[Rfam]
RNA sequence: GACCCAGAACCGUGAGGAACGGCCCCUUGCGGAUCGGGCAAUUCAUUUAAAGGAG
Numbered sequence: 001g002a003c004c005c006a007g008a009a010c011c012g013u014g015a016g017g018a019a020c021g022g023c024c025c026c027u028u029g030c031g032g033a034u035c036g037g038g039c040a041a042u043u044c045a046u047u048u049a050a051a052g053g054a055g
Base pairs, nucleotide, nucleotide: 003038004037005036007035008034010032011031012030013029014028015027016026017025
This 55-nucleotide RNA belongs to the Rfam family "L20-Deltaproteobacteria ribosomal protein leader". On this family, see Eckert and Weinberg, BMC Microbiol 2020: "Discovery of 20 novel ribosomal leader candidates in bacteria and archaea". Rfam's curators put it in the seed alignment.